[Rfam]
The record is a 109-nucleotide RNA sequence from Variovorax sp. PBL-E5, which matches "TPP riboswitch aptamer (THI element)" in Rfam. The family's consensus secondary structure is taken from published work. The source organism's lineage runs through Bacteria, Pseudomonadati, Pseudomonadota, Betaproteobacteria and Variovorax.
RNA sequence: AAGCAACGCUAGGGGUGCCGGCGCGCGGAUCGAAACGCGGGCCGGCUGAGAGAGUCCCUUUGAACCUGACUGAGGUAAUCCUCGCGCAGGGAAGCCGGCCCGGCGGCUG
Numbered sequence: 001a002a003g004c005a006a007c008g009c010u011a012g013g014g015g016u017g018c019c020g021g022c023g024c025g026c027g028g029a030u031c032g033a034a035a036c037g038c039g040g041g042c043c044g045g046c047u048g049a050g051a052g053a054g055u056c057c058c059u060u061u062g063a064a065c066c067u068g069a070c071u072g073a074g075g076u077a078a079u080c081c082u083c084g085c086g087c088a089g090g091g092a093a094g095c096c097g098g099c100c101c102g103g104c105g106g107c108u109g
Stems, first nucleotide, its partner, number of pairs: 008095003011059004016053001017046005065090004071084004